[Rfam]
RNA sequence: AGUAAUUUACUGGAAAGGAAGUUGAAUGGCUGAUGGAUAAAUAAUUCUAUUUUACACGUAAAAUGUAUACGCAUUUUCACAUAAAAUAGGAUUAGUCUGCCCAUUUAUACUUCCUUUAGCGAACUUAAAGGCUUAUUUACGUAUGAAUACUAAUCCUUCUGACUUUUUCAGAAGGAUUUUUUU
Numbered sequence: 001a002g003u004a005a006u007u008u009a010c011u012g013g014a015a016a017g018g019a020a021g022u023u024g025a026a027u028g029g030c031u032g033a034u035g036g037a038u039a040a041a042u043a044a045u046u047c048u049a050u051u052u053u054a055c056a057c058g059u060a061a062a063a064u065g066u067a068u069a070c071g072c073a074u075u076u077u078c079a080c081a082u083a084a085a086a087u088a089g090g091a092u093u094a095g096u097c098u099g100c101c102c103a104u105u106u107a108u109a110c111u112u113c114c115u116u117u118a119g120c121g122a123a124c125u126u127a128a129a130g131g132c133u134u135a136u137u138u139a140c141g142u143a144u145g146a147a148u149a150c151u152a153a154u155c156c157u158u159c160u161g162a163c164u165u166u167u168u169c170a171g172a173a174g175g176a177u178u179u180u181u182u183u
Stems, first nucleotide, its partner, number of pairs: 016106003023103002029097001031095001042094013060077007114131003152178011